Overview:
Rfam assigns this 114-nucleotide RNA sequence from Sinocyclocheilus anshuiensis to the family "Potassium channel RNA editing signal". Taxonomically the source falls in Sinocyclocheilus (Eukaryota, Craniata, Teleostei, Cypriniformes). The family's RNA type in Rfam is cis-regulatory element. Pairs were carried over by alignment from the consensus structure, which is taken from published work. A search with the family's covariance model found it, with a score of 105 bits.
RNA sequence: GUAGGGUACGGUGACAUGGUUCCAACUACAAUCGGUGGCAAAAUUGUGGGUUCCUUGUGUGCUAUCGCUGGUGUGCUGACCAUUGCCUUGCCCGUGCCUGUCAUAGUCUCAAAC
Numbered sequence: 001g002u003a004g005g006g007u008a009c010g011g012u013g014a015c016a017u018g019g020u021u022c023c024a025a026c027u028a029c030a031a032u033c034g035g036u037g038g039c040a041a042a043a044u045u046g047u048g049g050g051u052u053c054c055u056u057g058u059g060u061g062c063u064a065u066c067g068c069u070g071g072u073g074u075g076c077u078g079a080c081c082a083u084u085g086c087c088u089u090g091c092c093c094g095u096g097c098c099u100g101u102c103a104u105a106g107u108c109u110c111a112a113a114c
Base pairs, nucleotide, nucleotide: 001114002113005110008107009106011104013102014101015100016099018097021094037077038076039075040074049063050062051061